[Rfam]
RNA sequence: GGUCAUGAGCGCCAGCGCGAAGCCCCGGCUCGCUGGCCGGCAACCCUCCCUCCGCGGCGGGGUGCCCCGGGUGACGACCUGGCCGUCCACCGACCGGUGGCGCGGCAAGCGCGGGGC
Numbered sequence: 001g002g003u004c005a006u007g008a009g010c011g012c013c014a015g016c017g018c019g020a021a022g023c024c025c026c027g028g029c030u031c032g033c034u035g036g037c038c039g040g041c042a043a044c045c046c047u048c049c050c051u052c053c054g055c056g057g058c059g060g061g062g063u064g065c066c067c068c069g070g071g072u073g074a075c076g077a078c079c080u081g082g083c084c085g086u087c088c089a090c091c092g093a094c095c096g097g098u099g100g101c102g103c104g105g106c107a108a109g110c111g112c113g114g115g116g117c
Stems, first nucleotide, its partner, number of pairs: 001079004009038001011037006021030002039066003044062003048057002082106005087100005